[Rfam]
This 166-nucleotide sequence from Metabacillus indicus belongs to the Rfam family "glmS glucosamine-6-phosphate activated ribozyme aptamer".
Its family is annotated with regulation of gene expression and catalytic activity in the Gene Ontology.
Lineage of the source: Bacteria > Bacillati > Bacillota > Bacilli > Metabacillus.
Rfam classes the family as a riboswitch.
Rfam describes the family as follows. This entry contains a glucosamine-6-phosphate activated ribozyme that is found in the mRNA for GlmS. GlmS is an enzyme that uses fructose-6-phosphate and glutamine to generate glucosamine-6-phosphate. The ribozyme catalyses self cleavage of the glmS mRNA that is thought to regulate GlmS activity.

RNA sequence: GUUUUACGAAAAGCGCCUGAACUGAGCAGAACGAAAAAAGCUUAGUUGACGAGGAUGGAGGAUUAUCGAAAGUUCGGCGGAUGCCUCCCGGUUGACGAUUACAGCCGCAAGCUCUCUCCUGAAAACAAAGAGGCAACUUUUUGCACAAAGGGAAGAACGUAAUCAC
Numbered sequence: 001g002u003u004u005u006a007c008g009a010a011a012a013g014c015g016c017c018u019g020a021a022c023u024g025a026g027c028a029g030a031a032c033g034a035a036a037a038a039a040g041c042u043u044a045g046u047u048g049a050c051g052a053g054g055a056u057g058g059a060g061g062a063u064u065a066u067c068g069a070a071a072g073u074u075c076g077g078c079g080g081a082u083g084c085c086u087c088c089c090g091g092u093u094g095a096c097g098a099u100u101a102c103a104g105c106c107g108c109a110a111g112c113u114c115u116c117u118c119c120u121g122a123a124a125a126c127a128a129a130g131a132g133g134c135a136a137c138u139u140u141u142u143g144c145a146c147a148a149a150g151g152g153a154a155g156a157a158c159g160u161a162a163u164c165a166c
Stems, first nucleotide, its partner, number of pairs: 020047008057088005066077004089107006113156003117152002126143007